The record is a 67-nucleotide sequence from Bacillus sp. SJS, which matches "Bacillaceae-1 RNA" in Rfam. The organism belongs to Bacillus, within Bacteria. The family's consensus secondary structure is taken from published work.
[Rfam]
Nucleotides: 067
Base pairs, nucleotide, nucleotide: 011049012048013047014046015045016044025039027037028036029035053067055065056064057063
Number, partner (000 for none) and nucleotide at each position: 001000c002000a003000g004000g005000a006000a007000u008000g009000a010000a011049g012048u013047u014046c015045u016044g017000c018000u019000a020000a021000g022000u023000g024000c025039g026000a027037g028036g029035c030000g031000u032000c033000c034000u035029g036028u037027c038000g039025c040000a041000g042000c043000a044016c045015a046014g047013a048012a049011c050000u051000g052000a053067c054000c055065c056064g057063c058000g059000u060000c061000c062000u063057g064056c065055g066000a067053g

The match comes from Rfam's covariance-model search (53 bits).